[Rfam]
Nucleotides: 072
Base pairs, nucleotide, nucleotide: 006023007022009020010019011018012017025066027065028064029063031061034058037055
Number, partner (000 for none) and nucleotide at each position: 001000u002000a003000c004000u005000u006023g007022c008000u009020g010019a011018u012017g013000c014000c015000c016000g017012u018011a019010u020009u021000u022007g023006u024000a025066c026000u027065u028064g029063c030000c031061u032000a033000u034058g035000g036000a037055u038000c039000a040000u041000g042000c043000u044000c045000c046000u047000g048000g049000u050000u051000u052000g053000u054000c055037a056000g057000g058034c059000c060000g061031a062000a063029g064028c065027g066025g067000c068000c069000c070000u071000g072000g
Rfam assigns this 72-nucleotide RNA sequence from Orthohepacivirus hominis to the family "Hepatitis C virus stem-loop SL2531 and SL2549AU". It is one of the family's seed sequences. The family's consensus secondary structure was predicted with RNAfold. It is annotated as a cis-regulatory element. A reference for the family is Pirakitikulr et al. (2016), "The Coding Region of the HCV Genome Contains a Network of Regulatory RNA Structures", Mol Cell.